[Rfam]
RNA sequence: GGGAUUGCAAAUGCCGGCACGCCACCCUAAAUCUGAAUUGUUCUUCGGAACUAUGGUGAUAAACGCGCUCGUAAUAAGCGGCUCGGACCCGGGGGCGGUACCCGGCGACUCCACCAAACGCCCUUCAUUUGGGGCCAUGGGGUCGAAACAGGAUCGACGAACGUCUAAAGGGGUUUGCUUUUGCCCGGUGAGGAACCACCGUUAUCGGUCCGUUAAAGCUAGUUGCAAAUGACAACAAAGCUCCGAUGGCGCUCGCAGCGUAAGCUGUGCGCAAUAUCAAAUCUUAAGUCCUUGCCCCUAGCAGGGUAAGGCGGGGUUCGCAGGUACCUGGCAACAGAAACCUGCACU
Numbered sequence: 001g002g003g004a005u006u007g008c009a010a011a012u013g014c015c016g017g018c019a020c021g022c023c024a025c026c027c028u029a030a031a032u033c034u035g036a037a038u039u040g041u042u043c044u045u046c047g048g049a050a051c052u053a054u055g056g057u058g059a060u061a062a063a064c065g066c067g068c069u070c071g072u073a074a075u076a077a078g079c080g081g082c083u084c085g086g087a088c089c090c091g092g093g094g095g096c097g098g099u100a101c102c103c104g105g106c107g108a109c110u111c112c113a114c115c116a117a118a119c120g121c122c123c124u125u126c127a128u129u130u131g132g133g134g135c136c137a138u139g140g141g142g143u144c145g146a147a148a149c150a151g152g153a154u155c156g157a158c159g160a161a162c163g164u165c166u167a168a169a170g171g172g173g174u175u176u177g178c179u180u181u182u183g184c185c186c187g188g189u190g191a192g193g194a195a196c197c198a199c200c201g202u203u204a205u206c207g208g209u210c211c212g213u214u215a216a217a218g219c220u221a222g223u224u225g226c227a228a229a230u231g232a233c234a235a236c237a238a239a240g241c242u243c244c245g246a247u248g249g250c251g252c253u254c255g256c257a258g259c260g261u262a263a264g265c266u267g268u269g270c271g272c273a274a275u276a277u278c279a280a281a282u283c284u285u286a287a288g289u290c291c292u293u294g295c296c297c298c299u300a301g302c303a304g305g306g307u308a309a310g311g312c313g314g315g316g317u318u319c320g321c322a323g324g325u326a327c328c329u330g331g332c333a334a335c336a337g338a339a340a341c342c343u344g345c346a347c348u
Base pairs, nucleotide, nucleotide: 040051041050042049043048055185056184057183058182059181065178066177067174068173069172070171079163080162083160084159085158089105090104091103092102093101106145107144108143109142110141111140112139186201187200188199189198192211193210195209196208197207314329315328316327317326320345321344322343323342324341325340
Background:
Shown here is a 348-nucleotide sequence from Pseudoruegeria sp. SK021, a member of the family "Alphaproteobacteria transfer-messenger RNA". Pairs were carried over by alignment from the consensus structure, which is taken from published work. On this family, see Williams and Bartel, RNA 1996: "Phylogenetic analysis of tmRNA secondary structure". Bacterial tmRNA, also known as 10Sa RNA or SsrA, is named for its dual tRNA and mRNA-like properties. Its role is to liberate the mRNA from a stalled ribosome.